[Rfam]
RNA sequence: GAUCCAUAAGGUGAUGGUGUUCCACCUUUCCCAACCGCCGGUUCAUUCGAACCGGAUGAUGACGCCUGAUAUACA
Numbered sequence: 001g002a003u004c005c006a007u008a009a010g011g012u013g014a015u016g017g018u019g020u021u022c023c024a025c026c027u028u029u030c031c032c033a034a035c036c037g038c039c040g041g042u043u044c045a046u047u048c049g050a051a052c053c054g055g056a057u058g059a060u061g062a063c064g065c066c067u068g069a070u071a072u073a074c075a
Base pairs, nucleotide, nucleotide: 010026011025012024013023016066017065018064019063020062021061038055039054040053041052042051043050044049
RNA: Fluoride riboswitch aptamer (crcB RNA motif)